A member of the RNA family "THF (Tetrahydrofolate) riboswitch aptamer", 103 nucleotides long. For this family Rfam cites "A eubacterial riboswitch class that senses the coenzyme tetrahydrofolate" (Ames et al., Chem Biol, 2010). From the family's description: Tetrahydrofolate (THF) riboswitch was first reported for Ames et al. as an RNA motif in 5' untranslated (5'-UTR)regions of folate transport and biosynthesis genes in Firmicutes genomes.

[Rfam]
RNA sequence: GCAGAGUAGGAAUACAGGCGUUAAGUGCUGGUUGAACAGGGAGUUGUCAGCCGGACGAAGAGACCCUCCGGGGUUUCGCGGUCAGUAUUCCGCAUCCCGCUGC
Numbered sequence: 001g002c003a004g005a006g007u008a009g010g011a012a013u014a015c016a017g018g019c020g021u022u023a024a025g026u027g028c029u030g031g032u033u034g035a036a037c038a039g040g041g042a043g044u045u046g047u048c049a050g051c052c053g054g055a056c057g058a059a060g061a062g063a064c065c066c067u068c069c070g071g072g073g074u075u076u077c078g079c080g081g082u083c084a085g086u087a088u089u090c091c092g093c094a095u096c097c098c099g100c101u102g103c
Stems, first nucleotide, its partner, number of pairs: 001103004009091007017083002019080003025056002028054008039097003043093001060077006
Dot-bracket structure: ((((....(((((((.(((((...((.((((((((...[[[.[...))))))))))...((((((......))))))))).)).))))))).].]]]..))))

It is one of the family's seed sequences.